[Rfam]
RNA sequence: CAUAUUGCUUUCAGUAACAAGGAUUCAUCCUGUUGUGAUGCUGACAGGCUGACAGGAAAUCAUUGUUACUGGGAGUGUAUGU
Number, nucleotide and partner (000 for none) at each position: 001c000002a000003u000004a000005u000006u000007g000008c000009u000010u000011u072012c071013a070014g069015u068016a067017a066018c065019a064020a000021g000022g061023a060024u059025u058026c000027a000028u000029c056030c055031u054032g053033u052034u051035g050036u000037g049038a000039u047040g000041c000042u000043g000044a000045c000046a000047g039048g000049c037050u035051g034052a033053c032054a031055g030056g029057a000058a025059a024060u023061c022062a000063u000064u019065g018066u017067u016068a015069c014070u013071g012072g011073g000074a000075g000076u000077g000078u000079a000080u000081g000082u000
mir-459 microRNA precursor family: an 82-nucleotide sequence from Kryptolebias marmoratus. Taxonomically the source falls in Kryptolebias (Eukaryota, Vertebrata, Euteleosteomorpha, Atherinomorphae). Pairs were carried over by alignment from the consensus structure, which was predicted with RNAalifold. Its family is annotated with RISC complex and miRNA-mediated post-transcriptional gene silencing in the Gene Ontology.